[Rfam]
RNA: t44 RNA
RNA sequence: CUUUAACACAGGCAAAAACACACGUGUGCCGACACAGUUGCCGGGGUGCUCUCAGUCAUUGACUGCAGGGUCGGGAGCUGGGGUACACGGAGGCUAAAC
Numbered sequence: 001c002u003u004u005a006a007c008a009c010a011g012g013c014a015a016a017a018a019c020a021c022a023c024g025u026g027u028g029c030c031g032a033c034a035c036a037g038u039u040g041c042c043g044g045g046g047u048g049c050u051c052u053c054a055g056u057c058a059u060u061g062a063c064u065g066c067a068g069g070g071u072c073g074g075g076a077g078c079u080g081g082g083g084u085a086c087a088c089g090g091a092g093g094c095u096a097a098a099c
Stems, first nucleotide, its partner, number of pairs: 023089008035080005041074003048071005